Rfam assigns this 131-nucleotide sequence from Nannospalax galili to the family "Small nucleolar RNA SNORA24". The family's RNA type in Rfam is H/ACA-box small nucleolar RNA. The organism belongs to Nannospalax, within Eukaryota. Rfam describes the family as follows. ACA24 is a member of the H/ACA class of snoRNA that guide the sites of modification of uridines to pseudouridines.
[Rfam]
RNA sequence: CUUCAUGCAUCAUUGGGACCUGUCAGCUAUGGCAGUCUCCCUUCCUAUCCAUGGAAGAGCAUGUUCUUGUUUAUUGGCAAAGCUGUCACCAUUUAAUUGGUAUCCGAUUCUGACUUGUACAAGUAACAUUC
Numbered sequence: 001c002u003u004c005a006u007g008c009a010u011c012a013u014u015g016g017g018a019c020c021u022g023u024c025a026g027c028u029a030u031g032g033c034a035g036u037c038u039c040c041c042u043u044c045c046u047a048u049c050c051a052u053g054g055a056a057g058a059g060c061a062u063g064u065u066c067u068u069g070u071u072u073a074u075u076g077g078c079a080a081a082g083c084u085g086u087c088a089c090c091a092u093u094u095a096a097u098u099g100g101u102a103u104c105c106g107a108u109u110c111u112g113a114c115u116u117g118u119a120c121a122a123g124u125a126a127c128a129u130u131c
Stems, first nucleotide, its partner, number of pairs: 002055006015041004020035005068128004074122003077118004083106001085104001088101004